[Rfam]
RNA sequence: CCGAGUCCCGACGCACCCCCCCUCGCGACGGGACUCUUCCGAGCCGAGCCUCGGCGCCUCACCCCCCCUGGCGCCGAGGCUCGGCUCCGUU
Numbered sequence: 001c002c003g004a005g006u007c008c009c010g011a012c013g014c015a016c017c018c019c020c021c022c023u024c025g026c027g028a029c030g031g032g033a034c035u036c037u038u039c040c041g042a043g044c045c046g047a048g049c050c051u052c053g054g055c056g057c058c059u060c061a062c063c064c065c066c067c068c069u070g071g072c073g074c075c076g077a078g079g080c081u082c083g084g085c086u087c088c089g090u091u
Stems, first nucleotide, its partner, number of pairs: 005034006012027003041087010052076007

About this RNA:
The family of this 91-nucleotide sequence from Streptomyces sp. Tue6028 is "Streptomyces RNA 3202". A search with the family's covariance model found it, with a score of 74 bits. A reference for the family is Vockenhuber et al. (2011), "Deep sequencing-based identification of small non-coding RNAs in Streptomyces coelicolor", RNA Biol. The family's RNA type in Rfam is small RNA.